The record is a 135-nucleotide RNA from Ictidomys tridecemlineatus, which matches "Small nucleolar RNA SNORA70" in Rfam.
About the family: snoRNA U70 seems to be exclusive to mammals and is a member of the H/ACA class of snoRNA which contain H (ANANNA) and ACA box motifs. H/ACA box snoRNAs are involved in the conversion of uridines to pseudouridines (5-ribosyluracil) a constituent of structural RNAs (transfer, ribosomal, small nuclear, and small nucleolar).
NCBI's taxonomy places the organism under Eukaryota, Craniata, Boreoeutheria, Sciuromorpha, Ictidomys.
It is annotated as an H/ACA-box small nucleolar RNA.
On this family, see Charette and Gray, IUBMB Life 2000: "Pseudouridine in RNA: what, where, how, and why".
RNA sequence: CUGCAGCUAAUUAAGCCGACUGGGUUCCUUUACUUGUGGUGGCCCAGUGUGCAAUGGCUGCAAACAGCAAUCUCCUUGGUAGUGUAUGCAGCCUGUUGCUUGUAUGGGUUGCCCUAAGGGACCUUGGAGACAGCA
Numbered sequence: 001c002u003g004c005a006g007c008u009a010a011u012u013a014a015g016c017c018g019a020c021u022g023g024g025u026u027c028c029u030u031u032a033c034u035u036g037u038g039g040u041g042g043c044c045c046a047g048u049g050u051g052c053a054a055u056g057g058c059u060g061c062a063a064a065c066a067g068c069a070a071u072c073u074c075c076u077u078g079g080u081a082g083u084g085u086a087u088g089c090a091g092c093c094u095g096u097u098g099c100u101u102g103u104a105u106g107g108g109u110u111g112c113c114c115u116a117a118g119g120g121a122c123c124u125u126g127g128a129g130a131c132a133g134c135a
Stems, first nucleotide, its partner, number of pairs: 002053004019048004025042002028039001078123003089111006
Dot-bracket structure: .((((.............((((..((.(..........).))..)))).))))........................(((........((((((...........)))))).........)))............